[Rfam]
Shown here is a 127-nucleotide sequence from Asbolus verrucosus, a member of the family "Small Cajal body specific RNA 8". The family has 22 seed sequences and 955 matches in Rfam 15.1. By type it is a small Cajal body RNA. The source organism's lineage runs through Eukaryota, Metazoa, Mandibulata, Allotriocarida and Asbolus. For this family Rfam cites "Cajal body-specific small nuclear RNAs: a novel class of 2'-O-methylation and pseudouridylation guide RNAs" (Darzacq et al., EMBO J, 2002). From the family's description: scaRNAs are a specific class of small nuclear RNAs which localise to the Cajal bodies and guide the modification of RNA polymerase II transcribed spliceosomal RNAs U1, U2, U4, U5 and U12. U92 belong to the H/ACA box class of guide RNAs as it has the predicted hairpin-hinge-hairpin-tail structure, conserved H/ACA-box motifs and is found associated with GAR1. Gene Ontology terms of the family: Cajal body, nucleolus and RNA processing.
RNA sequence: UGGAAUUAUGAUACGUGUGCUUAUGUAAAGUGUCGUUGGCACACCACAAUAAUUCCCAGAGAACGGGCUUUCUGAUGACUUCGGUUUGUGAAGUUGUAAACCGAGGACAGAUACGAAGCAUACAAUC
Numbered sequence: 001u002g003g004a005a006u007u008a009u010g011a012u013a014c015g016u017g018u019g020c021u022u023a024u025g026u027a028a029a030g031u032g033u034c035g036u037u038g039g040c041a042c043a044c045c046a047c048a049a050u051a052a053u054u055c056c057c058a059g060a061g062a063a064c065g066g067g068c069u070u071u072c073u074g075a076u077g078a079c080u081u082c083g084g085u086u087u088g089u090g091a092a093g094u095u096g097u098a099a100a101c102c103g104a105g106g107a108c109a110g111a112u113a114c115g116a117a118g119c120a121u122a123c124a125a126u127c
Stems, first nucleotide, its partner, number of pairs: 002056006015044004023036003065121001067119005079106003084101004